[Rfam]
RNA: Lysine riboswitch aptamer
RNA sequence: CUAGAAAGUAGAGGCGCACUGUUUUAAUAGUAAUCCGGAGUAGGGUGACUCCGUUGGUCUGAGCAUUUCAGCCAGUAAACCGGAUGAAAGGAAAAAGUGCCGAAGUGGAUACGAUGGUCAUGUCGGUCCGCUGGUGGUGCAUCGAAGAGGUGUACUACUGUCACGGUUUUUAACUGUGGAGAGCUACUGGAAGU
Numbered sequence: 001c002u003a004g005a006a007a008g009u010a011g012a013g014g015c016g017c018a019c020u021g022u023u024u025u026a027a028u029a030g031u032a033a034u035c036c037g038g039a040g041u042a043g044g045g046u047g048a049c050u051c052c053g054u055u056g057g058u059c060u061g062a063g064c065a066u067u068u069c070a071g072c073c074a075g076u077a078a079a080c081c082g083g084a085u086g087a088a089a090g091g092a093a094a095a096a097g098u099g100c101c102g103a104a105g106u107g108g109a110u111a112c113g114a115u116g117g118u119c120a121u122g123u124c125g126g127u128c129c130g131c132u133g134g135u136g137g138u139g140c141a142u143c144g145a146a147g148a149g150g151u152g153u154a155c156u157a158c159u160g161u162c163a164c165g166g167u168u169u170u171u172a173a174c175u176g177u178g179g180a181g182a183g184c185u186a187c188u189g190g191a192a193g194u
Stems, first nucleotide, its partner, number of pairs: 007188005016100005022094003033085006104132007112125005133159011161179007